[Rfam]
RNA sequence: CACAUGAAGCAUAUGAUGACAAACUGGAUCUGAUAUUCUAUGUUGAAUUUCUUCAAUCCAACCCUGAGCUUCAUGUU
Numbered sequence: 001c002a003c004a005u006g007a008a009g010c011a012u013a014u015g016a017u018g019a020c021a022a023a024c025u026g027g028a029u030c031u032g033a034u035a036u037u038c039u040a041u042g043u044u045g046a047a048u049u050u051c052u053u054c055a056a057u058c059c060a061a062c063c064c065u066g067a068g069c070u071u072c073a074u075g076u077u
Stems, first nucleotide, its partner, number of pairs: 002076009
The family of this 77-nucleotide RNA sequence from Monodelphis domestica is "Small nucleolar RNA SNORD69". By type it is a C/D-box small nucleolar RNA. Rfam's curators put it in the seed alignment. On this family, see Huttenhofer et al., EMBO J 2001: "RNomics: an experimental approach that identifies 201 candidates for novel, small, non-messenger RNAs in mouse". About the family: snoRNA HBII-210 belongs to the C/D family of snoRNAs. It is the human orthologue of the mouse MBII-210 and is predicted to guide the 2'O-ribose methylation of large 28S rRNA on residue G4464. Lineage of the source: Eukaryota > Euteleostomi > Metatheria > Didelphidae > Monodelphis.